[Rfam]
RNA sequence: AUACUAUGAUGGUUGCAUAGUUCAGCAGAUUGACUUGUGACGAGAUGUACCAUUUGUCUGAUGUGUCU
Numbered sequence: 001a002u003a004c005u006a007u008g009a010u011g012g013u014u015g016c017a018u019a020g021u022u023c024a025g026c027a028g029a030u031u032g033a034c035u036u037g038u039g040a041c042g043a044g045a046u047g048u049a050c051c052a053u054u055u056g057u058c059u060g061a062u063g064u065g066u067c068u
Base pairs, nucleotide, nucleotide: 001066002065003064004063006038007037008036009035013028014027015026016025043055044054045053046052047051
A member of the RNA family "Small nucleolar RNA SNORD77" from Rousettus aegyptiacus, 68 nucleotides long.
Its Rfam clan is "SNORD77 clan".
Gene Ontology terms of the family: RNA processing and nucleolus.
A reference for the family is Tycowski et al. (2004), "Guide RNAs with 5' caps and novel box C/D snoRNA-like domains for modification of snRNAs in metazoa", Curr Biol.
U77 belongs to the C/D family of snoRNAs. It is predicted to guide 2'O-ribose methylation of large 28S rRNA subunit at position A1521.